The record is a 112-nucleotide RNA sequence from Teichococcus rhizosphaerae, which matches "TPP riboswitch aptamer (THI element)" in Rfam. Rfam's curators write: Vitamin B(1) in its active form thiamin pyrophosphate (TPP) is an essential coenzyme that is synthesised by coupling of pyrimidine and thiazole moieties in bacteria. The previously detected thiamin-regulatory element, thi box was extended, resulting in a new, highly conserved RNA secondary structure, the THI element, which is widely distributed in eubacteria and also occurs in some archaea. Analysis of operon structures identified a large number of new candidate thiamin-regulated genes, mostly transporters, in various prokaryotic organisms. The THI element is a riboswitch that directly binds to TPP to regulate gene expression through a variety of mechanisms in archaea, bacteria and eukaryotes. through a variety of mechanisms in archaea, bacteria and eukaryotes. The match comes from Rfam's covariance-model search (75 bits). The family's consensus secondary structure is taken from published work. Taxonomically the source falls in Roseomonas (Bacteria, Pseudomonadati, Alphaproteobacteria, Acetobacterales).
[Rfam]
RNA sequence: GUCAUCUCCGGGGGGAGCCCGAUCACACGGGCUGAGAGGCAGGGAUGGGCCCUGCGACCCCUUGAACCUGAUCCGGGUCAUGCCGGCGAAGGGAUCGGUGGUUGCGAUGGCG
Numbered sequence: 001g002u003c004a005u006c007u008c009c010g011g012g013g014g015g016a017g018c019c020c021g022a023u024c025a026c027a028c029g030g031g032c033u034g035a036g037a038g039g040c041a042g043g044g045a046u047g048g049g050c051c052c053u054g055c056g057a058c059c060c061c062u063u064g065a066a067c068c069u070g071a072u073c074c075g076g077g078u079c080a081u082g083c084c085g086g087c088g089a090a091g092g093g094a095u096c097g098g099u100g101g102u103u104g105c106g107a108u109g110g111c112g
Base pairs, nucleotide, nucleotide: 006100008098009097010096011061012060013059014058017032018031019030020029021028039055040054041053042052043051067092068091069090073086074085075084076083